[Rfam]
RNA sequence: GCCCUUUUCCCCCACUCCUGCUGGCGUGCCCUACAGAGAAGCUUUCAGGCUCUUGGGGGAAAAGC
Number, nucleotide and partner (000 for none) at each position: 001g065002c064003c000004c000005u000006u000007u000008u059009c058010c057011c056012c000013c000014a053015c000016u000017c000018c000019u047020g046021c000022u000023g043024g042025c041026g034027u033028g000029c000030c000031c000032u000033a027034c026035a000036g000037a000038g000039a000040a000041g025042c024043u023044u000045u000046c020047a019048g000049g000050c000051u000052c000053u014054u000055g000056g011057g010058g009059g008060a000061a000062a000063a000064g002065c001